[Rfam]
RNA sequence: UGCCUGUGAUGAAUUGCCAUGCUAAUGGGAGACACCAGGUAGGGAGUUUUACCCUGCAUUGGGUGUUGUUGAAAUAAACUCUUUCUCAGAAAUGCUGAGGGCAC
Numbered sequence: 001u002g003c004c005u006g007u008g009a010u011g012a013a014u015u016g017c018c019a020u021g022c023u024a025a026u027g028g029g030a031g032a033c034a035c036c037a038g039g040u041a042g043g044g045a046g047u048u049u050u051a052c053c054c055u056g057c058a059u060u061g062g063g064u065g066u067u068g069u070u071g072a073a074a075u076a077a078a079c080u081c082u083u084u085c086u087c088a089g090a091a092a093u094g095c096u097g098a099g100g101g102c103a104c
Stems, first nucleotide, its partner, number of pairs: 001103004040056005
Small nucleolar RNA U6-53/MBII-28: a 104-nucleotide sequence from Macaca fascicularis. It is annotated as a C/D-box small nucleolar RNA. The pairing is the family consensus, mapped onto this sequence.